[Rfam]
RNA sequence: UUGAUCAGUUGCUCAGUAGGCAGUGUAGAUCCUGUGUAAUUAUCAGCAGCUACAUCUGGCUACUGGGUCUCUGAACACACGC
Numbered sequence: 001u002u003g004a005u006c007a008g009u010u011g012c013u014c015a016g017u018a019g020g021c022a023g024u025g026u027a028g029a030u031c032c033u034g035u036g037u038a039a040u041u042a043u044c045a046g047c048a049g050c051u052a053c054a055u056c057u058g059g060c061u062a063c064u065g066g067g068u069c070u071c072u073g074a075a076c077a078c079a080c081g082c
Stems, first nucleotide, its partner, number of pairs: 013066006021058002023055006032049004
Shown here is an 82-nucleotide RNA sequence from Coregonus sp. 'balchen', a member of the family "mir-221 microRNA precursor family". The base pairs follow the family's consensus structure, which was predicted with RNAalifold. The organism belongs to Coregonus, within Eukaryota. Rfam 15.1 lists 1,797 matches to the family in 643 species. Its family is annotated with miRNA-mediated post-transcriptional gene silencing and RISC complex in the Gene Ontology.